RNA: Lysine riboswitch aptamer
RNA sequence: AGGUGAGGUAGAGGCGCGGUAUUUAACAGUCUUUGACAGAGCUUGAGCAGCUAUGACGUCAGGGAGAAGGAAAUAUCGCCGAAGCGAAGGAUCAGGCUCUAUGCUCCUUUGCUGGGUCUGCAGUGAAUAACUGCAGGACUGUCUUGACAGACUUCCCGGUUUGCCAAGUUGUGCUAUCUCGUCA
Numbered sequence: 001a002g003g004u005g006a007g008g009u010a011g012a013g014g015c016g017c018g019g020u021a022u023u024u025a026a027c028a029g030u031c032u033u034u035g036a037c038a039g040a041g042c043u044u045g046a047g048c049a050g051c052u053a054u055g056a057c058g059u060c061a062g063g064g065a066g067a068a069g070g071a072a073a074u075a076u077c078g079c080c081g082a083a084g085c086g087a088a089g090g091a092u093c094a095g096g097c098u099c100u101a102u103g104c105u106c107c108u109u110u111g112c113u114g115g116g117u118c119u120g121c122a123g124u125g126a127a128u129a130a131c132u133g134c135a136g137g138a139c140u141g142u143c144u145u146g147a148c149a150g151a152c153u154u155c156c157c158g159g160u161u162u163g164c165c166a167a168g169u170u171g172u173g174c175u176a177u178c179u180c181g182u183c184a
Base pairs, nucleotide, nucleotide: 006179007178008177009176010175011174016079017078018077019076020075021074022073023072024071031064032063033062034061035060036059037058083113084112085111086110087109088108089107090106091105093103094102114140115139117137118136119135120134121133122132123131124130143168144167145166146165148163149162150161151160